This 117-nucleotide sequence belongs to the Rfam family "LOOT RNA".
RNA sequence: GACCUAAACCAAGCGAGAGUUCGCAAGGCAUGGCCCAAAGACAGGUAGUGCAUAGAGAACCCUCACGGGGUUGCAUUACCUGCCAUAUCGAGAAAUCGGUAUGUCCGCUUCGGCGGA
Number, nucleotide and partner (000 for none) at each position: 001g035002a000003c033004c032005u000006a000007a000008a000009c028010c027011a000012a000013g024014c023015g022016a000017g000018a000019g000020u000021u000022c015023g014024c013025a000026a000027g010028g009029c000030a000031u000032g004033g003034c000035c001036c000037a000038a000039a000040g000041a000042c082043a081044g080045g079046u078047a077048g076049u075050g074051c073052a072053u000054a000055g000056a000057g000058a000059a071060c070061c069062c068063u000064c000065a000066c000067g000068g062069g061070g060071u059072u052073g051074c050075a049076u048077u047078a046079c045080c044081u043082g042083c000084c103085a102086u101087a100088u099089c098090g097091a096092g000093a000094a000095a000096u091097c090098g089099g088100u087101a086102u085103g084104u117105c116106c115107g114108c113109u000110u000111c000112g000113g108114c107115g106116g105117a104